[Rfam]
RNA sequence: UGACUUAGCUGGGUAGUGGGGAACCCUUCCAUGAGGAGUAGAACACUCCUUAUGCAAGAUUCCCUUCUACCUGGCUGGGUUGG
Numbered sequence: 001u002g003a004c005u006u007a008g009c010u011g012g013g014u015a016g017u018g019g020g021g022a023a024c025c026c027u028u029c030c031a032u033g034a035g036g037a038g039u040a041g042a043a044c045a046c047u048c049c050u051u052a053u054g055c056a057a058g059a060u061u062c063c064c065u066u067c068u069a070c071c072u073g074g075c076u077g078g079g080u081u082g083g
Base pairs, nucleotide, nucleotide: 002081003080004079005078006077007076008075010073011072012071013070015068016067018065019064020063021062022061023060026058027057028056030054031053032052033051034050035049036048037047038046039045
Shown here is an 83-nucleotide RNA sequence from Pan troglodytes, a member of the family "mir-491 microRNA precursor family". The literature on the family includes a 2005 paper in Nat Genet by Bentwich et al., "Identification of hundreds of conserved and nonconserved human microRNAs". The base pairs follow the family's consensus structure, which was predicted with RNAalifold. Gene Ontology terms of the family: RISC complex and miRNA-mediated post-transcriptional gene silencing.